[Rfam]
RNA sequence: UGGGUCGGCAAGACGGCCGCGUCAGCCGGUUCCCUUCGGGGGAGCGGCUGCCGAGGAACGUCCGGGCUCCACAGAGCAGGGCGGUGGGUAACACCCACCCGGGGUAACCCGCGAGACAGUGCCACAGAAAGUAGACCGCCACCGUUUUUCGGUGGUAAGGGUGAAACGGUGGUGUAAGAGACCACCAGAGGCCAGGGUGACCUGGUCGGCUCGGUAAACCUCGUCCGGAGCAAGGUCACACAGGAAACGUUAAGGCGGCUCGCCGAGUUUCCGGGUAGACCGCUAGAGGGCUGCGGCAACGUAGUCCCGAGAUAGAUGGCCGUCCCCGGUGAAAACCGGGACAGAACCCGGCGUACCAGCCGGCCCAUUCC
Numbered sequence: 001u002g003g004g005u006c007g008g009c010a011a012g013a014c015g016g017c018c019g020c021g022u023c024a025g026c027c028g029g030u031u032c033c034c035u036u037c038g039g040g041g042g043a044g045c046g047g048c049u050g051c052c053g054a055g056g057a058a059c060g061u062c063c064g065g066g067c068u069c070c071a072c073a074g075a076g077c078a079g080g081g082c083g084g085u086g087g088g089u090a091a092c093a094c095c096c097a098c099c100c101g102g103g104g105u106a107a108c109c110c111g112c113g114a115g116a117c118a119g120u121g122c123c124a125c126a127g128a129a130a131g132u133a134g135a136c137c138g139c140c141a142c143c144g145u146u147u148u149u150c151g152g153u154g155g156u157a158a159g160g161g162u163g164a165a166a167c168g169g170u171g172g173u174g175u176a177a178g179a180g181a182c183c184a185c186c187a188g189a190g191g192c193c194a195g196g197g198u199g200a201c202c203u204g205g206u207c208g209g210c211u212c213g214g215u216a217a218a219c220c221u222c223g224u225c226c227g228g229a230g231c232a233a234g235g236u237c238a239c240a241c242a243g244g245a246a247a248c249g250u251u252a253a254g255g256c257g258g259c260u261c262g263c264c265g266a267g268u269u270u271c272c273g274g275g276u277a278g279a280c281c282g283c284u285a286g287a288g289g290g291c292u293g294c295g296g297c298a299a300c301g302u303a304g305u306c307c308c309g310a311g312a313u314a315g316a317u318g319g320c321c322g323u324c325c326c327c328g329g330u331g332a333a334a335a336c337c338g339g340g341a342c343a344g345a346a347c348c349c350g351g352c353g354u355a356c357c358a359g360c361c362g363g364c365c366c367a368u369u370c371c
Stems, first nucleotide, its partner, number of pairs: 001367009012324007020053002023050006058354003062351005067230004074261004079226005084098005099113001100111004114221002119219002121215003136160002138156007168186006188210001190207007234281004243272006254264003288307008
Annotation
Bacterial RNase P class A: a 371-nucleotide sequence from Cryobacterium sp. MDB2-A-2. A search with the family's covariance model found it, with a score of 303 bits. Ribonuclease P (RNase P) is a ubiquitous endoribonuclease, found in archaea, bacteria and eukarya as well as chloroplasts and mitochondria. The base pairs follow the family's consensus structure, which is taken from published work.